[Rfam]
A member of the RNA family "mir-4989 microRNA precursor family" from Mesocestoides corti, 80 nucleotides long.
The organism belongs to Mesocestoides, within Eukaryota.
The base pairs follow the family's consensus structure, which was predicted with RNAalifold.

RNA sequence: ACGCUGGGUAGUCGUUGCAUUUCCACCUUGCUGCAAUUCCGUAGCCAGUUUACAGUGAAAAUGCACCAACUAUCUGAGAG
Dot-bracket structure: ...(((((((((.(.(((((((.(((..((((((......)))))......)..))).))))))).).))))))).))..
Numbered sequence: 001a002c003g004c005u006g007g008g009u010a011g012u013c014g015u016u017g018c019a020u021u022u023c024c025a026c027c028u029u030g031c032u033g034c035a036a037u038u039c040c041g042u043a044g045c046c047a048g049u050u051u052a053c054a055g056u057g058a059a060a061a062u063g064c065a066c067c068a069a070c071u072a073u074c075u076g077a078g079a080g
Stems, first nucleotide, its partner, number of pairs: 004078002006075007014067001016065007024057003029052001030045005